[Rfam]
RNA sequence: UGCUUGAAGCCUGGAACUUCGACUCAACCUUAGUUUAAUAAGUGUAGGUGAGCAAAGUUUCAGGUGUUCAAGCGC
Numbered sequence: 001u002g003c004u005u006g007a008a009g010c011c012u013g014g015a016a017c018u019u020c021g022a023c024u025c026a027a028c029c030u031u032a033g034u035u036u037a038a039u040a041a042g043u044g045u046a047g048g049u050g051a052g053c054a055a056a057g058u059u060u061c062a063g064g065u066g067u068u069c070a071a072g073c074g075c
Base pairs, nucleotide, nucleotide: 002073003072004071005070006069007068009065010064011063012062013061014060016058017057018056019055023052024051025050026049028048029047030046
This 75-nucleotide RNA from Dracunculus medinensis belongs to the Rfam family "mir-87 microRNA precursor family". A search with the family's covariance model found it, with a score of 66 bits.